Shown here is a 137-nucleotide RNA sequence from Meloidogyne enterolobii, a member of the family "MIR474 microRNA precursor family". It scores 55 bits against the family's covariance model. A reference for the family is Lu et al. (2005), "Novel and mechanical stress-responsive MicroRNAs in Populus trichocarpa that are absent from Arabidopsis", Plant Cell. Lineage of the source: Eukaryota > Opisthokonta > Nematoda > Rhabditida > Meloidogyne.
RNA sequence: GCAGGGAUCAGUGGUGGGUAUAGCUCCGGAGCCGGAGCCAACAAAUGGCCAGUGCUGGGUAUUUGCCAUUUGUUGGCUCCGACUCCGGGUUUUCAAUAUCUUGGCUCCGGAGCUAUACCCAGCACUGAUCCCUGCUU
Numbered sequence: 001g002c003a004g005g006g007a008u009c010a011g012u013g014g015u016g017g018g019u020a021u022a023g024c025u026c027c028g029g030a031g032c033c034g035g036a037g038c039c040a041a042c043a044a045a046u047g048g049c050c051a052g053u054g055c056u057g058g059g060u061a062u063u064u065g066c067c068a069u070u071u072g073u074u075g076g077c078u079c080c081g082a083c084u085c086c087g088g089g090u091u092u093u094c095a096a097u098a099u100c101u102u103g104g105c106u107c108c109g110g111a112g113c114u115a116u117a118c119c120c121a122g123c124a125c126u127g128a129u130c131c132c133u134g135c136u137u
Base pairs, nucleotide, nucleotide: 001135002134004132005131006130007129008128009127013123015121016120017119018118019117020116021115022114023113024112025111026110027109028108029107030106031105032104034080035079036078037077038076039075040074041073042072043071044070045069046068047067048066049065087101088100089099090098
Dot-bracket structure: ((.((((((...(.((((((((((((((((((.((((((((((((((((...............))))))))))))))))......((((.......))))..)))))))))))))))))).)...)))))).))..